[Rfam]
RNA: U2 spliceosomal RNA
Organism: Homarus americanus
RNA sequence: AUCGCUUCUCGGCCUUUUGGCUAAGAUCAAAGUGUAGUAUCUGUUCUUAUCAGCUUAAUGGGGAGUACAUAAUCAGUGUUCUUUUUUUACAUAGAAGGAAGAACACAGAUUUGGAUUUUCUGGGGGUGAAAGUAACAGAGUUACUCCUUUGUUGUUUUAGGCGGCGAGCAGGGAACCCGGUAUUUCUCCAUUGCUGUGGUUAUU
Numbered sequence: 001a002u003c004g005c006u007u008c009u010c011g012g013c014c015u016u017u018u019g020g021c022u023a024a025g026a027u028c029a030a031a032g033u034g035u036a037g038u039a040u041c042u043g044u045u046c047u048u049a050u051c052a053g054c055u056u057a058a059u060g061g062g063g064a065g066u067a068c069a070u071a072a073u074c075a076g077u078g079u080u081c082u083u084u085u086u087u088u089a090c091a092u093a094g095a096a097g098g099a100a101g102a103a104c105a106c107a108g109a110u111u112u113g114g115a116u117u118u119u120c121u122g123g124g125g126g127u128g129a130a131a132g133u134a135a136c137a138g139a140g141u142u143a144c145u146c147c148u149u150u151g152u153u154g155u156u157u158u159a160g161g162c163g164g165c166g167a168g169c170a171g172g173g174a175a176c177c178c179g180g181u182a183u184u185u186c187u188c189c190a191u192u193g194c195u196g197u198g199g200u201u202a203u204u
Stems, first nucleotide, its partner, number of pairs: 007026003011022004049080001051078002083098006129158008138146003161197006168189001170187004